Source information:
A member of the RNA family "Pseudomonas sRNA CrcZ" from Pseudomonas knackmussii, 401 nucleotides long. Gene Ontology term of the family: carbon catabolite repression of transcription. It is annotated as a small RNA. Rfam 15.1 lists 127 matches to the family in 96 species.
Nucleotides: 401
Stems, first nucleotide, its partner, number of pairs: 050085002053082004100219005115211002134185007157170005237254001240253004278383004283378001284309002287306001328374003346369001347366008
Number, partner (000 for none) and nucleotide at each position: 001000a002000c003000a004000a005000c006000a007000a008000c009000a010000a011000u012000a013000a014000c015000a016000a017000g018000c019000u020000c021000a022000a023000a024000a025000c026000c027000a028000a029000g030000a031000c032000a033000a034000c035000a036000a037000a038000a039000a040000c041000a042000a043000c044000a045000c046000g047000u048000a049000a050085c051084g052000a053082c054081u055080c056079c057000a058000g059000c060000a061000c062000a063000a064000c065000a066000a067000a068000a069000a070000c071000a072000a073000a074000a075000u076000c077000g078000c079056g080055g081054a082053g083000g084051c085050g086000c087000a088000g089000c090000u091000a092000a093000c094000u095000g096000a097000u098000u099000c100219u101218u102217u103216u104215g105000g106000a107000g108000g109000a110000g111000a112000g113000u114000a115211g116210c117000u118000g119000u120000c121000g122000g123000g124000a125000g126000a127000g128000a129000u130000c131000c132000c133000g134185c135184a136183a137182c138181c139180g140179g141000u142000c143000g144000a145000a146000g147000a148000a149000c150000a151000a152000u153000a154000a155000a156000a157170c158169u159168g160167c161166c162000c163000c164000g165000a166161g167160g168159c169158a170157g171000c172000g173000a174000c175000g176000a177000a178000a179140c180139u181138g182137g183136u184135u185134g186000g187000a188000u189000c190000g191000c192000a193000a194000g195000a196000u197000c198000a199000c200000u201000g202000c203000u204000c205000a206000c207000u208000c209000a210116g211115c212000g213000a214000c215104c216103a217102a218101a219100g220000c221000a222000a223000u224000c225000c226000g227000u228000u229000u230000g231000c232000u233000c234000u235000u236000g237254u238000g239000a240253g241252u242251c243250c244000u245000g246000a247000a248000u249000a250243g251242g252241a253240u254237a255000c256000g257000c258000c259000c260000c261000a262000a263000g264000g265000c266000g267000a268000u269000u270000g271000a272000c273000c274000u275000u276000g277000g278383g279382g280381g281380a282000c283378g284309g285308g286000u287306c288000a289000a290000c291000a292000a293000a294000c295000a296000a297000a298000a299000a300000c301000a302000a303000c304000a305000a306287g307000c308285c309284c310000g311000a312000u313000a314000c315000c316000a317000u318000a319000a320000c321000a322000a323000g324000a325000a326000c327000a328374a329373a330372g331000a332000a333000a334000g335000c336000a337000c338000c339000u340000a341000c342000u343000u344000u345000g346369g347366g348365g349364g350363g351362g352361a353360g354359c355000u356000c357000a358000g359354g360353c361352u362351c363350c364349c365348c366347c367000a368000g369346u370000a371000g372330c373329u374328u375000c376000u377000c378283c379000c380281u381280c382279u383278c384000c385000c386000c387000u388000g389000c390000u391000u392000c393000c394000u395000c396000g397000c398000u399000c400000u401000c